[Rfam]
RNA sequence: CACUUAUCCAGAAAGGCGGAGGGAUAUGGCCCUGCGAUGCCUUAGCAACCAUUUCCGUUCCUUGUGAACGGGGAAAAGGUGCUAAUUCCUGCCCCCGGGUAAUGCCGUGGGAAAGAUAAGUU
Numbered sequence: 001c002a003c004u005u006a007u008c009c010a011g012a013a014a015g016g017c018g019g020a021g022g023g024a025u026a027u028g029g030c031c032c033u034g035c036g037a038u039g040c041c042u043u044a045g046c047a048a049c050c051a052u053u054u055c056c057g058u059u060c061c062u063u064g065u066g067a068a069c070g071g072g073g074a075a076a077a078g079g080u081g082c083u084a085a086u087u088c089c090u091g092c093c094c095c096c097g098g099g100u101a102a103u104g105c106c107g108u109g110g111g112a113a114a115g116a117u118a119a120g121u122u
Stems, first nucleotide, its partner, number of pairs: 002121007013043005021032003028089002044083004049079002052075004087114001092111003096107002
Rfam assigns this 122-nucleotide RNA sequence from Chitinophaga japonensis to the family "SAM riboswitch aptamer (S box leader)". Pairs were carried over by alignment from the consensus structure, which is taken from published work. Rfam's curators write: The SAM riboswitch is found upstream of a number of genes which code for proteins involved in methionine or cysteine biosynthesis in Gram-positive bacteria. The organism belongs to Chitinophaga, within Bacteria.